[Rfam]
RNA sequence: UCGGCUCUUUUUGCGGUCUGGGCUUGCUGUCCUCCCGCAGCACUCAGGAAGCCCUUACCCCAAAAAGGAUCCG
Numbered sequence: 001u002c003g004g005c006u007c008u009u010u011u012u013g014c015g016g017u018c019u020g021g022g023c024u025u026g027c028u029g030u031c032c033u034c035c036c037g038c039a040g041c042a043c044u045c046a047g048g049a050a051g052c053c054c055u056u057a058c059c060c061c062a063a064a065a066a067g068g069a070u071c072c073g
Stems, first nucleotide, its partner, number of pairs: 007067007015059003020054004025049001027047002